RNA sequence: CCACCUGAAGUUUCCCUCAGGAUAGCUGGCAUUCUAUAAGUCUCAUCUGGUAAAGCGAAUGAUUAGAGGCCUUGGGGUCGAAACGACUUCAACCUAUUCUCAAACUUUAAAUGGGUGAGAACUCUGGCUUGCUUCGGUGAAGCCACGAGUUCCUCGGAUUGUGAUUGCCUAGUGGGCCAUUUUGGUAAGCAGAACUGGCGCUGUGGGAUGAACCAAACGCGGAGUUAAAGCGCCUAAGACGACGCAGAUGGGAAACCAUGAAAGGCGUUGGUUGCUGAUGACAGCAGGACGGUGGCCAUGGAAGUUGGAAUCCGCUAAGGAGUGUGUAACAACUCACCUGCCGAAGCAACUAGCCCUGAAAAUGGAUGGCGCUGAAGCGUCGCGCUUAUACUCCGCCGUCAGUGCAAAUGGCCUUCGGGUUCUUGAAGCAUUGAUGAGUAAGGUGGUCGUGUGGGUGUGCGCAGAAGGGUCUGGGCGUGAGCCUGCCUGGAGCCGCCCAUAGUGCAGAU
Numbered sequence: 001c002c003a004c005c006u007g008a009a010g011u012u013u014c015c016c017u018c019a020g021g022a023u024a025g026c027u028g029g030c031a032u033u034c035u036a037u038a039a040g041u042c043u044c045a046u047c048u049g050g051u052a053a054a055g056c057g058a059a060u061g062a063u064u065a066g067a068g069g070c071c072u073u074g075g076g077g078u079c080g081a082a083a084c085g086a087c088u089u090c091a092a093c094c095u096a097u098u099c100u101c102a103a104a105c106u107u108u109a110a111a112u113g114g115g116u117g118a119g120a121a122c123u124c125u126g127g128c129u130u131g132c133u134u135c136g137g138u139g140a141a142g143c144c145a146c147g148a149g150u151u152c153c154u155c156g157g158a159u160u161g162u163g164a165u166u167g168c169c170u171a172g173u174g175g176g177c178c179a180u181u182u183u184g185g186u187a188a189g190c191a192g193a194a195c196u197g198g199c200g201c202u203g204u205g206g207g208a209u210g211a212a213c214c215a216a217a218c219g220c221g222g223a224g225u226u227a228a229a230g231c232g233c234c235u236a237a238g239a240c241g242a243c244g245c246a247g248a249u250g251g252g253a254a255a256c257c258a259u260g261a262a263a264g265g266c267g268u269u270g271g272u273u274g275c276u277g278a279u280g281a282c283a284g285c286a287g288g289a290c291g292g293u294g295g296c297c298a299u300g301g302a303a304g305u306u307g308g309a310a311u312c313c314g315c316u317a318a319g320g321a322g323u324g325u326g327u328a329a330c331a332a333c334u335c336a337c338c339u340g341c342c343g344a345a346g347c348a349a350c351u352a353g354c355c356c357u358g359a360a361a362a363u364g365g366a367u368g369g370c371g372c373u374g375a376a377g378c379g380u381c382g383c384g385c386u387u388a389u390a391c392u393c394c395g396c397c398g399u400c401a402g403u404g405c406a407a408a409u410g411g412c413c414u415u416c417g418g419g420u421u422c423u424u425g426a427a428g429c430a431u432u433g434a435u436g437a438g439u440a441a442g443g444u445g446g447u448c449g450u451g452u453g454g455g456u457g458u459g460c461g462c463a464g465a466a467g468g469g470u471c472u473g474g475g476c477g478u479g480a481g482c483c484u485g486c487c488u489g490g491a492g493c494c495g496c497c498c499a500u501a502g503u504g505c506a507g508a509u
Base pairs, nucleotide, nucleotide: 001446002445003444004443005442006441011024013022014021015020028169029168030167031166033164041120042119043118044117045116046115047114048113053108054106055105060102061101062100065097067095068094069093072092073091074090075089076088077087079085122149123148124147125145126144127143128142129141130140176199177198178197179196180194181193182192183191184190204215205214206213219396220395221394222393223392225390229386230385231384238383240382243379244378245377263357264356265355267354268353269352270351271350272349273348274347275346276345284341285340286339287338288337290314291313292312296308297307315319320335324333325332397436398435399434400433401432402431403430404429405428448504450501451500452499453498454497455496456495457494459493460492467488468487474483475482476481
The record is a 509-nucleotide part of an RNA from Thrips palmi, which matches "Eukaryotic large subunit ribosomal RNA" in Rfam. It scores 2076 bits against the family's covariance model. The base pairs follow the family's consensus structure, which is taken from published work.